Shown here is a 69-nucleotide RNA from Parundibacterium terreum, a member of the family "Betaproteobacteria toxic small RNA". It scores 51 bits against the family's covariance model.

RNA sequence: UGUCUCCUCUUGCUUUCCUCCAAAGCAGGAUUUCAACCCGCAAAACCCUGUUUUUGCGGGUUUUUUCAU
Numbered sequence: 001u002g003u004c005u006c007c008u009c010u011u012g013c014u015u016u017c018c019u020c021c022a023a024a025g026c027a028g029g030a031u032u033u034c035a036a037c038c039c040g041c042a043a044a045a046c047c048c049u050g051u052u053u054u055u056g057c058g059g060g061u062u063u064u065u066u067c068a069u
Stems, first nucleotide, its partner, number of pairs: 008030008035062010